[Rfam]
Annotation
The family of this 175-nucleotide RNA sequence from Enterococcus sp. NBRC 3427 is "Enterococcus sRNA 2410". Rfam 15.1 lists 74 matches to the family in 56 species. By type it is a small RNA. Produced as 2 transcripts on Northern blot. Expressed in mid, late exponential and early stationary phases of growth. A search with the family's covariance model found it, with a score of 74 bits. The base pairs follow the family's consensus structure, which was predicted with RNAfold. Lineage of the source: Bacteria > Bacillota > Lactobacillales > Enterococcaceae > Enterococcus.
RNA sequence: UUAGCUAUUUUAGAUAGGUUUGUAUUCAUGACUUCGUGGGUACAAACAAACCAAGUUUGUAUCUAUGAUGGCUAAAGAUUUUUAAACACGACUUACAGCCACGUAGAGAAAUUCAUCUAUAGUGGCUAUUUUAUAUUUUUGCAGCGCUUUUUAAGGCUCGUUGAAGAUGUUCACU
Numbered sequence: 001u002u003a004g005c006u007a008u009u010u011u012a013g014a015u016a017g018g019u020u021u022g023u024a025u026u027c028a029u030g031a032c033u034u035c036g037u038g039g040g041u042a043c044a045a046a047c048a049a050a051c052c053a054a055g056u057u058u059g060u061a062u063c064u065a066u067g068a069u070g071g072c073u074a075a076a077g078a079u080u081u082u083u084a085a086a087c088a089c090g091a092c093u094u095a096c097a098g099c100c101a102c103g104u105a106g107a108g109a110a111a112u113u114c115a116u117c118u119a120u121a122g123u124g125g126c127u128a129u130u131u132u133a134u135a136u137u138u139u140u141g142c143a144g145c146g147c148u149u150u151u152u153a154a155g156g157c158u159c160g161u162u163g164a165a166g167a168u169g170u171u172c173a174c175u
Base pairs, nucleotide, nucleotide: 001075002074003073004072005071006070007069011065012064013063014062015061016060018047019046020045021044022043023042024041025040026039027038028037029036048058049057050056051055081143083141084140085139086138088136097127098126099125100124101123102122104119105118106117144170145169146168148167149166150165151164